Source information: The record is a 445-nucleotide part of an RNA from Schizosaccharomyces octosporus, which matches "Eukaryotic large subunit ribosomal RNA" in Rfam. The base pairs follow the family's consensus structure, which is taken from published work. The sequence is in the family's curated seed alignment. The organism belongs to Schizosaccharomyces octosporus, within Eukaryota. The literature on the family includes a 2001 paper in Science by Yusupov et al., "Crystal structure of the ribosome at 5.5 A resolution". Gene Ontology terms of the family: ribosome and structural constituent of ribosome.
[Rfam]
RNA sequence: GGAAGUAGCAAAUAUCAAAUGAGAACUUGAAGACUGAAGUGGGGAAAGGUUCCAUGGAACAGCAGUUGGCCAUGGGUUAGUCGAUCCUAAGAGAUAGGAAGCUCCGUAUGAAAGUUGCACGAUUUUCGUGCCUCCUAUCGAAAGGGAAUCCGGUUAAUAUCCGGAACCAGAAGGUGGAAUCACACGGCAACGUAAAUGAAGUUGGAGACGUCGGCAGGAGCCUGGGAAGAGUUCUCUUUCUUUUAACAAACCACGAACUUACCUGAAAUCGGUUUAUCCGGAGCUAGGGUAUGGUGUUGGAAGAGUUCAGCGCCUCAUGCUGGAUCCGGUGCGCUCUGACGACCCUUGAAAAUCCAACGAAGAAUGGGGGGUUUCGGCUCCUCUUGUUUCACAUCUGGUCGUACUCAUACCGCAGCAGGUCUCCAAGGUGAACAGCCUCUAGUGA
Numbered sequence: 001g002g003a004a005g006u007a008g009c010a011a012a013u014a015u016c017a018a019a020u021g022a023g024a025a026c027u028u029g030a031a032g033a034c035u036g037a038a039g040u041g042g043g044g045a046a047a048g049g050u051u052c053c054a055u056g057g058a059a060c061a062g063c064a065g066u067u068g069g070c071c072a073u074g075g076g077u078u079a080g081u082c083g084a085u086c087c088u089a090a091g092a093g094a095u096a097g098g099a100a101g102c103u104c105c106g107u108a109u110g111a112a113a114g115u116u117g118c119a120c121g122a123u124u125u126u127c128g129u130g131c132c133u134c135c136u137a138u139c140g141a142a143a144g145g146g147a148a149u150c151c152g153g154u155u156a157a158u159a160u161c162c163g164g165a166a167c168c169a170g171a172a173g174g175u176g177g178a179a180u181c182a183c184a185c186g187g188c189a190a191c192g193u194a195a196a197u198g199a200a201g202u203u204g205g206a207g208a209c210g211u212c213g214g215c216a217g218g219a220g221c222c223u224g225g226g227a228a229g230a231g232u233u234c235u236c237u238u239u240c241u242u243u244u245a246a247c248a249a250a251c252c253a254c255g256a257a258c259u260u261a262c263c264u265g266a267a268a269u270c271g272g273u274u275u276a277u278c279c280g281g282a283g284c285u286a287g288g289g290u291a292u293g294g295u296g297u298u299g300g301a302a303g304a305g306u307u308c309a310g311c312g313c314c315u316c317a318u319g320c321u322g323g324a325u326c327c328g329g330u331g332c333g334c335u336c337u338g339a340c341g342a343c344c345c346u347u348g349a350a351a352a353u354c355c356a357a358c359g360a361a362g363a364a365u366g367g368g369g370g371g372u373u374u375c376g377g378c379u380c381c382u383c384u385u386g387u388u389u390c391a392c393a394u395c396u397g398g399u400c401g402u403a404c405u406c407a408u409a410c411c412g413c414a415g416c417a418g419g420u421c422u423c424c425a426a427g428g429u430g431a432a433c434a435g436c437c438u439c440u441a442g443u444g445a
Base pairs, nucleotide, nucleotide: 015030016029018028019027033443034442035441041424042423043422044421047405048404052075053074054073055072056071057070060068061067082401083400084399086145087144091139092138094107095106097105098104099103117131118130119129149165150164151163152162153161168397169396170395171394174392175391176390177389178387184193185192186191201358202357203356204355205354206353210343211342212341213340215338216337218336219335220334221333222329223328224327225244226243227242228241229240230239247299248298249297251296257290258289262288263287264286265285269281270280271279272278306324307323308322309321310320311319312318410419411418426438427437428436429435